[Rfam]
RNA sequence: CGAGCCGACUGGGUAAUCGCGGCUGCAUGUAUCGGCCUUGUUAGGUGCUGACCUGCGUCGAGGAAAGUCCGGACUCCACAGAGCACGGUGGUUGCUAACGGCAACCCAGGGCGACCUGAGGGAACAGUGCAACAGAGAGUAGACCGCCUUCUUCCGGGAAGGUAAGGGUGAAAGGGUGCGGUAAGAGCGCACCGGCGACGUAGGUGACUACGCCGGCCAGGUAAACCCCACUGGGAGCAAGGCAAGAGGCCGCACCGCUUGGUGUGGCUGCGUGGGUUGGGCUGCUCGUCCAAUAACCCACGGGUAGCUGCUUGAGGCGCAUGGGCAACGAUGCGUCCAGAUAGAUGAUUACCACCCGCAAGGGAACAUAAUCCGGCUCAUAGGUUGGCUCGUUCG
Numbered sequence: 001c002g003a004g005c006c007g008a009c010u011g012g013g014u015a016a017u018c019g020c021g022g023c024u025g026c027a028u029g030u031a032u033c034g035g036c037c038u039u040g041u042u043a044g045g046u047g048c049u050g051a052c053c054u055g056c057g058u059c060g061a062g063g064a065a066a067g068u069c070c071g072g073a074c075u076c077c078a079c080a081g082a083g084c085a086c087g088g089u090g091g092u093u094g095c096u097a098a099c100g101g102c103a104a105c106c107c108a109g110g111g112c113g114a115c116c117u118g119a120g121g122g123a124a125c126a127g128u129g130c131a132a133c134a135g136a137g138a139g140u141a142g143a144c145c146g147c148c149u150u151c152u153u154c155c156g157g158g159a160a161g162g163u164a165a166g167g168g169u170g171a172a173a174g175g176g177u178g179c180g181g182u183a184a185g186a187g188c189g190c191a192c193c194g195g196c197g198a199c200g201u202a203g204g205u206g207a208c209u210a211c212g213c214c215g216g217c218c219a220g221g222u223a224a225a226c227c228c229c230a231c232u233g234g235g236a237g238c239a240a241g242g243c244a245a246g247a248g249g250c251c252g253c254a255c256c257g258c259u260u261g262g263u264g265u266g267g268c269u270g271c272g273u274g275g276g277u278u279g280g281g282c283u284g285c286u287c288g289u290c291c292a293a294u295a296a297c298c299c300a301c302g303g304g305u306a307g308c309u310g311c312u313u314g315a316g317g318c319g320c321a322u323g324g325g326c327a328a329c330g331a332u333g334c335g336u337c338c339a340g341a342u343a344g345a346u347g348a349u350u351a352c353c354a355c356c357c358g359c360a361a362g363g364g365a366a367c368a369u370a371a372u373c374c375g376g377c378u379c380a381u382a383g384g385u386u387g388g389c390u391c392g393u394u395c396g
Base pairs, nucleotide, nucleotide: 001392002391003390004389005388006387007386008385009384010383011381012353013352014351015350016349017348018347020060021059022058023057025056026055027054029052066378067377069376070375071374072373073372074237075236076235077234081287082286083285084284086233087232088231089230090229091105092104093103094102095101106120107118108117109116110115121228122227127226128225129222130221144167145166146163147162148161149160150159151158152157175193176192177191178190179189180188195217196215197214199212200211201210202209203208241309242308243307278292279291280290281289282288317336318335319334320333321332322331324329
This 396-nucleotide sequence from Corynebacterium kalinowskii belongs to the Rfam family "Bacterial RNase P class A". Rfam's curators write: Ribonuclease P (RNase P) is a ubiquitous endoribonuclease, found in archaea, bacteria and eukarya as well as chloroplasts and mitochondria. The family's consensus secondary structure is taken from published work. The source organism's lineage runs through Bacteria, Actinomycetota, Actinomycetes, Corynebacteriaceae and Corynebacterium. For this family Rfam cites "Ribonuclease P: unity and diversity in a tRNA processing ribozyme" (Frank and Pace, Annu Rev Biochem, 1998). Rfam classes the family as a ribozyme.